[Rfam]
RNA: c-di-GMP-I riboswitch aptamer
Organism: Syntrophobotulus glycolicus
RNA sequence: AUAUGAUAAGAGUAAACCUGUCGAAAGACAGGGACACAAAGCCACGGGUCUAAAGUAAUCUAACCAUGAUAGCCGGGUUGCCAUA
Numbered sequence: 001a002u003a004u005g006a007u008a009a010g011a012g013u014a015a016a017c018c019u020g021u022c023g024a025a026a027g028a029c030a031g032g033g034a035c036a037c038a039a040a041g042c043c044a045c046g047g048g049u050c051u052a053a054a055g056u057a058a059u060c061u062a063a064c065c066a067u068g069a070u071a072g073c074c075g076g077g078u079u080g081c082c083a084u085a
Stems, first nucleotide, its partner, number of pairs: 012037002017032006040079004045075003048070003055064002